[Rfam]
RNA sequence: AUAAAGCAUCAGGAGCGGUUUCAAGUUGAAACCCGCCAACCGAACUUAGAAAAAUCAAAGUUACGGUGGUUUGAUCCUUAAACGGUAGAUGUGCCUAGGAAAAUAGGAAACAUGAUUAGCCGCCU
Numbered sequence: 001a002u003a004a005a006g007c008a009u010c011a012g013g014a015g016c017g018g019u020u021u022c023a024a025g026u027u028g029a030a031a032c033c034c035g036c037c038a039a040c041c042g043a044a045c046u047u048a049g050a051a052a053a054a055u056c057a058a059a060g061u062u063a064c065g066g067u068g069g070u071u072u073g074a075u076c077c078u079u080a081a082a083c084g085g086u087a088g089a090u091g092u093g094c095c096u097a098g099g100a101a102a103a104u105a106g107g108a109a110a111c112a113u114g115a116u117u118a119g120c121c122g123c124c125u
Stems, first nucleotide, its partner, number of pairs: 006092005015034001017033007035070003040066003043062005094107004

SAM-I/IV (S-adenosyl methionine) riboswitch aptamer: a 125-nucleotide sequence. A reference for the family is Weinberg et al. (2008), "The aptamer core of SAM-IV riboswitches mimics the ligand-binding site of SAM-I riboswitches", RNA.